[Rfam]
A member of the RNA family "Small nucleolar RNA snoR136" from Arabidopsis thaliana, 155 nucleotides long. The base pairs follow the family's consensus structure, which was predicted with mfold. The literature on the family includes a 2009 paper in Nucleic Acids Res by Chen and Wu, "Mining small RNA sequencing data: a new approach to identify small nucleolar RNAs in Arabidopsis". NCBI's taxonomy places the organism under Eukaryota, Streptophytina, Tracheophyta, Pentapetalae, Arabidopsis.

RNA sequence: GUGGCUUUUACAUGAUAGAAAGAUUCAGGCUUUGAAUAUAUUUUAGAUGUGAAGCUUGUUGUGAAGUGUAAUUGCCUACAUUGAAUUUAGUUUCCCUCGCUAUCCUGUUCUUCAAUUUUCAAUGAUGUUUCUUAGGACGUCGGGGAACAAUAUGU
Numbered sequence: 001g002u003g004g005c006u007u008u009u010a011c012a013u014g015a016u017a018g019a020a021a022g023a024u025u026c027a028g029g030c031u032u033u034g035a036a037u038a039u040a041u042u043u044u045a046g047a048u049g050u051g052a053a054g055c056u057u058g059u060u061g062u063g064a065a066g067u068g069u070a071a072u073u074g075c076c077u078a079c080a081u082u083g084a085a086u087u088u089a090g091u092u093u094c095c096c097u098c099g100c101u102a103u104c105c106u107g108u109u110c111u112u113c114a115a116u117u118u119u120c121a122a123u124g125a126u127g128u129u130u131c132u133u134a135g136g137a138c139g140u141c142g143g144g145g146a147a148c149a150a151u152a153u154g155u
Stems, first nucleotide, its partner, number of pairs: 001079002003076003008071006016063002019060002026058008036050003090148007098139002103137005112125003